[Rfam]
Rfam assigns this 580-nucleotide part of an RNA from Halolamina pelagica to the family "Archaeal large subunit ribosomal RNA".
RNA sequence: CCCCAAGGGGAAGCGAAGACCCUAUAGAGCUUUACUGCAGGCUGUCGCUGAGACGUGGUCGCUAAUGUGCAGCAUAGGUAGGAGGCGUUACACAGGUACCCGCGCUAGCGGGCCACCGAGCCAUCAGUGAAAUACUACCCGUUAGUGACUGCGACUCUCACUCCUGGCGGAGGACACCGGUAGCCGGGCAGUUUGACUGGGGCGGUACGCGCUCGAAAAGAUAUCGAGCGCGCCCCAAGAUUUCCUCACUCGGGUCGGGAACCCGAGGAAGAGCGCAAGAGCAAACGGAAGUCUGACAGUGUCAUUCCCAACGAGUGACGCUGACGCGAAAGCGUGGUUUAGCGAACCAACCAUGGUCCUUGAUGGGCCAGGUUGCUGACAGAAAAGCUACCUUAGGGAUAACAGAGUCGUCACGCGCAAGAGCACAUAUCGACCGCGUGGCUUGCUACCUCGAUGUCGGUUCCCUCCAUCCUGCCCGUGCAGAAGCGGGCAAGGGUGAGGUUGUUCGCCUAUUAAAGGAGGUCGUGAGCUGGGUUUAGACCGUCGUGAGACAGGUCGGCUGCUAUCUAUUGGGGUGUUA
Dot-bracket structure: ((((((..(((.((......((((.(((((((.((((...(((((((..(((.((((((((((((((.........(((((..(((............(((((....))))).......)))............))))))))))))))))))).)))...((((....)))).....)))))))....))))..((((.....))).)((((((...........))))))..((....((((((((.((((((.......))))))...))((......))....))))))....(((((((((.........))))))))).(.(....).).))..........(((((.(((((.......)))))))))).........)))))..))))))........(((.((((((((...((.......))...)))))))..))))..........(((((((((((..((..(((((......)))))....))..((((.....))))......)))))..)..)))).).....(((((((....))).))))....))..))).)))))).....